mir-1233 microRNA precursor family: an 82-nucleotide RNA sequence from Rhinopithecus roxellana. Rfam links the family to the GO terms RISC complex and miRNA-mediated post-transcriptional gene silencing. A search with the family's covariance model found it, with a score of 88 bits. Taxonomically the source falls in Rhinopithecus (Eukaryota, Opisthokonta, Metazoa, Cercopithecoidea). The family has 6 seed sequences and 251 matches in Rfam 15.1.
[Rfam]
RNA sequence: GUGAGCGGGAGGCCAGGGCAUAGCAGGGGGAGCUGCUGGGCUGUGAGAGGGGCCCCAGCCUCUGAGCUGUGUCCUCCCACAG
Numbered sequence: 001g002u003g004a005g006c007g008g009g010a011g012g013c014c015a016g017g018g019c020a021u022a023g024c025a026g027g028g029g030g031a032g033c034u035g036c037u038g039g040g041c042u043g044u045g046a047g048a049g050g051g052g053c054c055c056c057a058g059c060c061u062c063u064g065a066g067c068u069g070u071g072u073c074c075u076c077c078c079a080c081a082g
Base pairs, nucleotide, nucleotide: 005080007078008077009076010075011074012073014071015070017068018067019066028063029062030061032059033058034057035056038055039054040053041052042051